This 79-nucleotide sequence from Cnephaeus nilssonii belongs to the Rfam family "mir-9198 microRNA precursor family".
[Rfam]
RNA sequence: GCCGCUGCUCACACCCGCUGCUGGUGCCCGGCAUCGGUCCAGAUCACUUGGCGCUGUCAGUGGGUGUGAGCGGUGGCUG
Numbered sequence: 001g002c003c004g005c006u007g008c009u010c011a012c013a014c015c016c017g018c019u020g021c022u023g024g025u026g027c028c029c030g031g032c033a034u035c036g037g038u039c040c041a042g043a044u045c046a047c048u049u050g051g052c053g054c055u056g057u058c059a060g061u062g063g064g065u066g067u068g069a070g071c072g073g074u075g076g077c078u079g
Stems, first nucleotide, its partner, number of pairs: 004074017022056007